[Rfam]
RNA sequence: AGCCUCCUGGUGCUCCCCACAGGCUGUGUUCUUACACUGACUGCAUAGAGAGAAGAGGUGACACACACAUACCCACAGACACCCCACCCAGGCCCUGAGCCUGGUCCGUAUUGUGAAGGGGGAGACAGCA
Numbered sequence: 001a002g003c004c005u006c007c008u009g010g011u012g013c014u015c016c017c018c019a020c021a022g023g024c025u026g027u028g029u030u031c032u033u034a035c036a037c038u039g040a041c042u043g044c045a046u047a048g049a050g051a052g053a054a055g056a057g058g059u060g061a062c063a064c065a066c067a068c069a070u071a072c073c074c075a076c077a078g079a080c081a082c083c084c085c086a087c088c089c090a091g092g093c094c095c096u097g098a099g100c101c102u103g104g105u106c107c108g109u110a111u112u113g114u115g116a117a118g119g120g121g122g123a124g125a126c127a128g129c130a
Base pairs, nucleotide, nucleotide: 002059003058004057005056006055008053020043021042022041026037027036028035029034072122073121074120076118085108088104089103090102091101092100093099